[Rfam]
RNA sequence: UUAUCGCGGAUCUCUCUGGCCUUGGAGGUUUCUCAUCGUAGUGAUACAAAACCAAAACCAUACGAUAUCACCGGGUGAGAAUCUUCCAAGGUAGGAGGAUCCUGC
Numbered sequence: 001u002u003a004u005c006g007c008g009g010a011u012c013u014c015u016c017u018g019g020c021c022u023u024g025g026a027g028g029u030u031u032c033u034c035a036u037c038g039u040a041g042u043g044a045u046a047c048a049a050a051a052c053c054a055a056a057a058c059c060a061u062a063c064g065a066u067a068u069c070a071c072c073g074g075g076u077g078a079g080a081a082u083c084u085u086c087c088a089a090g091g092u093a094g095g096a097g098g099a100u101c102c103u104g105c
Base pairs, nucleotide, nucleotide: 016095017094019092020091021090022089024087025086026085027084028083030081031080032079033078034077035076036075037074039073041071042070043069044068045067046066
The family of this 105-nucleotide RNA from Caenorhabditis briggsae is "mir-36 microRNA precursor family". Pairs were carried over by alignment from the consensus structure, which was predicted with WAR. The literature on the family includes a 2003 paper in Genes Dev by Lim et al., "The microRNAs of Caenorhabditis elegans". The family is grouped with related families in Rfam's "mir-36 clan". Its family is annotated with miRNA-mediated post-transcriptional gene silencing and RISC complex in the Gene Ontology.